[Rfam]
Shown here is a 97-nucleotide RNA sequence from Leuconostoc carnosum, a member of the family "Purine riboswitch aptamer". Rfam describes the family as follows. Riboswitches are metabolite binding domains within certain messenger RNAs that serve as precision sensors for their corresponding targets.
RNA sequence: AUUAAUAAAUAUUGGUUUGCAGAUAUAUUGCUAGAAAAUGGCUAGCAGUUUCUACCACGCCCCUAAAGUCGUGACUAUUCGCAAAUGCAACACGACC
Number, nucleotide and partner (000 for none) at each position: 001a000002u000003u000004a000005a000006u000007a000008a000009a000010u000011a000012u000013u000014g000015g000016u000017u000018u083019g082020c081021a000022g079023a078024u077025a076026u000027a000028u000029u047030g046031c045032u044033a043034g042035a000036a000037a000038a000039u000040g000041g000042c034043u033044a032045g031046c030047a029048g000049u000050u000051u000052c000053u000054a000055c000056c073057a072058c071059g070060c000061c068062c000063c000064u000065a000066a000067a000068g061069u000070c059071g058072u057073g056074a000075c000076u025077a024078u023079u022080c000081g020082c019083a018084a000085a000086u000087g000088c000089a000090a000091c000092a000093c000094g000095a000096c000097c000